[Rfam]
Description: This 55-nucleotide sequence from Citrobacter koseri belongs to the Rfam family "ES003 sRNA". The organism belongs to Citrobacter koseri, within Bacteria. Differentially expressed under several chemical stress and fermentation conditions. The family's RNA type in Rfam is small RNA.
RNA sequence: GUUUGCCAGAAAUCCACGGGUAAGCAGAUUUGCAUUGAUUCAGGUUAUACAAAUG
Numbered sequence: 001g002u003u004u005g006c007c008a009g010a011a012a013u014c015c016a017c018g019g020g021u022a023a024g025c026a027g028a029u030u031u032g033c034a035u036u037g038a039u040u041c042a043g044g045u046u047a048u049a050c051a052a053a054u055g
Base pairs, nucleotide, nucleotide: 001025002024003023004022005021006020007019033055034054036051037050038048039047